[Rfam]
RNA: Bacterial small signal recognition particle RNA
RNA sequence: UUUUGAGACUUGUGCAAUGGGUUUUUUGAAUAAUGCUUCAGGGUGGGAACACAGCAGAGCCUUCAAAAUAUUUAUGUGCCGCAAGUAUCUUAAGAAGG
Number, nucleotide and partner (000 for none) at each position: 001u000002u000003u000004u092005g091006a090007g089008a088009c085010u084011u083012g082013u081014g080015c076016a000017a075018u074019g073020g072021g071022u070023u000024u068025u067026u066027u065028g064029a063030a062031u000032a000033a000034u000035g060036c059037u058038u057039c000040a000041g000042g000043g052044u051045g050046g000047g000048a000049a000050c045051a044052c043053a000054g000055c000056a000057g038058a037059g036060c035061c000062u030063u029064c028065a027066a026067a025068a024069u000070a022071u021072u020073u019074a018075u017076g015077u000078g000079c000080c014081g013082c012083a011084a010085g009086u000087a000088u008089c007090u006091u005092a004093a000094g000095a000096a000097g000098g000